[Rfam]
RNA sequence: GUUCAAAAUACAGUGCUGUCUUUUCCAAGUACAUAUCUGAUUGCUCUGCAUGGAAAAUGACUGUUGCUGUGUAACUUUUGGAU
Numbered sequence: 001g002u003u004c005a006a007a008a009u010a011c012a013g014u015g016c017u018g019u020c021u022u023u024u025c026c027a028a029g030u031a032c033a034u035a036u037c038u039g040a041u042u043g044c045u046c047u048g049c050a051u052g053g054a055a056a057a058u059g060a061c062u063g064u065u066g067c068u069g070u071g072u073a074a075c076u077u078u079u080g081g082a083u
Stems, first nucleotide, its partner, number of pairs: 001083006008076001009073003